[Rfam]
RNA: Small nucleolar RNA SNORD21
RNA sequence: GCCAAAUGACGAUAGCCCACUAACUGAGCAGUCCGUAGUUGGUCCUUUGGCUGCAUAUGAUGUAGCAGUUGUUUCAAGACGGGACUGAUGGCAGC
Numbered sequence: 001g002c003c004a005a006a007u008g009a010c011g012a013u014a015g016c017c018c019a020c021u022a023a024c025u026g027a028g029c030a031g032u033c034c035g036u037a038g039u040u041g042g043u044c045c046u047u048u049g050g051c052u053g054c055a056u057a058u059g060a061u062g063u064a065g066c067a068g069u070u071g072u073u074u075c076a077a078g079a080c081g082g083g084a085c086u087g088a089u090g091g092c093a094g095c
Base pairs, nucleotide, nucleotide: 001092002091003090004089